The record is a 164-nucleotide sequence from Metabacillus sediminilitoris, which matches "SAM riboswitch aptamer (S box leader)" in Rfam. The SAM riboswitch is found upstream of a number of genes which code for proteins involved in methionine or cysteine biosynthesis in Gram-positive bacteria. NCBI's taxonomy places the organism under Bacteria, Bacillati, Bacilli, Caryophanales, Metabacillus.
[Rfam]
Nucleotides: 164
Base pairs, nucleotide, nucleotide: 002163003162004161005160006159007158008157013042014041015040016039017038021031022030023029025133026132027131028130043125044124045123046122048121049120050117051116052115053114129156135153136152137151138150139149140148
Number, partner (000 for none) and nucleotide at each position: 001000a002163u003162c004161u005160u006159a007158u008157c009000a010000a011000g012000a013042g014041a015040a016039g017038c018000u019000g020000a021031g022030g023029g024000a025133c026132u027131g028130g029023c030022c031021c032000a033000a034000u035000g036000a037000c038017g039016c040015u041014u042013c043125a044124g045123c046122a047000a048121c049120c050117g051116g052115u053114c054000a055000a056000u057000u058000u059000c060000g061000a062000g063000u064000g065000u066000a067000g068000g069000u070000u071000u072000g073000g074000u075000g076000u077000a078000u079000u080000g081000a082000g083000u084000g085000u086000u087000u088000u089000a090000a091000a092000c093000a094000c095000u096000g097000c098000a099000u100000c101000u102000u103000c104000c105000u106000c107000c108000u109000c110000c111000a112000a113000a114053g115052g116051c117050c118000a119000a120049g121048g122046u123045g124044c125043u126000a127000a128000u129156u130028c131027c132026a133025g134000u135153c136152a137151a138150g139149c140148a141000u142000a143000g144000u145000c146000g147000a148140u149139g150138c151137u152136u153135g154000a155000a156129a157008g158007a159006u160005a161004a162003g163002g164000a